[Rfam]
RNA sequence: GUUAUUCACUAUUGGUCCUUGAUUGGUUAUUUUUCCUGCAUCUUCCCACCCAGACGAGGUAUCAUAUACCCCUCAAAAUAAAGAGCCUUGGGUACUAGAAGAAAAGCACCUAUACCCAACAAUAUUAGUGAAUACACAAAAUUGUGGUCUUUUUAUUUCAUUUUCAUGCAA
Number, nucleotide and partner (000 for none) at each position: 001g000002u000003u000004a000005u000006u000007c000008a000009c000010u000011a000012u000013u000014g000015g000016u000017c000018c000019u000020u000021g000022a000023u000024u000025g000026g000027u000028u000029a000030u000031u000032u000033u000034u000035c000036c000037u000038g000039c000040a000041u000042c000043u000044u000045c000046c000047c000048a000049c000050c000051c000052a000053g000054a000055c000056g000057a000058g000059g000060u000061a000062u000063c000064a000065u000066a000067u000068a000069c000070c000071c000072c000073u000074c000075a000076a000077a000078a000079u000080a000081a000082a000083g000084a000085g000086c000087c000088u000089u000090g000091g000092g000093u000094a000095c000096u000097a000098g000099a000100a000101g000102a000103a000104a000105a000106g000107c000108a000109c000110c000111u000112a000113u000114a000115c000116c000117c000118a000119a000120c000121a000122a000123u000124a000125u000126u000127a000128g167129u166130g165131a164132a163133u000134a000135c000136a161137c000138a157139a156140a000141a000142u000143u000144g000145u000146g000147g000148u000149c000150u000151u000152u000153u000154u000155a000156u139157u138158u000159c000160a000161u136162u000163u132164u131165c130166a129167u128168g000169c000170a000171a000
RNA: Antisense RNA which regulates isiA expression
Organism: Nelumbo nucifera